[Rfam]
RNA: Group II catalytic intron D1-D4-3
Organism: Aminicella lysinilytica
RNA sequence: CACAUCGUGAGGUGUGGGAGAGAAGAAGCAAUAGCGAAAUCGUAGCCUGACGAACAGAAACCUAAUACUAAGGCUCAUAAAAUGGAUAAGCUGACUUAAAGUAGCGAAGUCCGAAAGGCAAUCGUAACUUUUAUGGGUAAAUUAGGCAGGCAGACGAGGAAAGAUUGGC
Numbered sequence: 001c002a003c004a005u006c007g008u009g010a011g012g013u014g015u016g017g018g019a020g021a022g023a024a025g026a027a028g029c030a031a032u033a034g035c036g037a038a039a040u041c042g043u044a045g046c047c048u049g050a051c052g053a054a055c056a057g058a059a060a061c062c063u064a065a066u067a068c069u070a071a072g073g074c075u076c077a078u079a080a081a082a083u084g085g086a087u088a089a090g091c092u093g094a095c096u097u098a099a100a101g102u103a104g105c106g107a108a109g110u111c112c113g114a115a116a117g118g119c120a121a122u123c124g125u126a127a128c129u130u131u132u133a134u135g136g137g138u139a140a141a142u143u144a145g146g147c148a149g150g151c152a153g154a155c156g157a158g159g160a161a162a163g164a165u166u167g168g169c
Base pairs, nucleotide, nucleotide: 001016002015003014004013005012006011028169029168031166035163040157041156042155043154045151046150047149048148049147061146062145063144064143065142066141073138074137075136077134078133079132080131081130082129084112085111086110087109090105091104092103093102